Notes
The family of this 69-nucleotide RNA is "Fluoride riboswitch aptamer (crcB RNA motif)". On this family, see Baker et al., Science 2012: "Widespread genetic switches and toxicity resistance proteins for fluoride". Rfam's curators put it in the seed alignment.

Nucleotides: 069
Base pairs, nucleotide, nucleotide: 010025011024012023013022016060017059018058019057020056021055035050036049037048038047039046040045
Number, partner (000 for none) and nucleotide at each position: 001000a002000a003000c004000g005000a006000u007000a008000a009000c010025g011024g012023c013022g014000a015000u016060g017059g018058g019057g020056u021055u022013c023012g024011c025010c026000a027000g028000u029000c030000a031000a032000a033000c034000c035050a036049c037048u038047c039046g040045c041000g042000g043000c044000g045040g046039c047038g048037a049036g050035u051000u052000g053000a054000u055021g056020a057019c058018c059017c060016c061000u062000a063000c064000u065000u066000c067000g068000a069000g